[Rfam]
RNA sequence: CCCGCUAAAGGUAAACCCUGAGCAAUCAGGGGGCGCAAAGCAAAGGGUCUUGCCAGGUCGCUGAAACGGUUUCCAUAGCCUAAGCAGUCGAAAGACAGCCUUGCUGCCAAAG
Numbered sequence: 001c002c003c004g005c006u007a008a009a010g011g012u013a014a015a016c017c018c019u020g021a022g023c024a025a026u027c028a029g030g031g032g033g034c035g036c037a038a039a040g041c042a043a044a045g046g047g048u049c050u051u052g053c054c055a056g057g058u059c060g061c062u063g064a065a066a067c068g069g070u071u072u073c074c075a076u077a078g079c080c081u082a083a084g085c086a087g088u089c090g091a092a093a094g095a096c097a098g099c100c101u102u103g104c105u106g107c108c109a110a111a112g
Stems, first nucleotide, its partner, number of pairs: 001112001004108001011036002016031006034098001039105004044101003047096005
RNA: c-di-GMP-I-GGC riboswitch aptamer
Organism: Candidatus Brocadia fulgida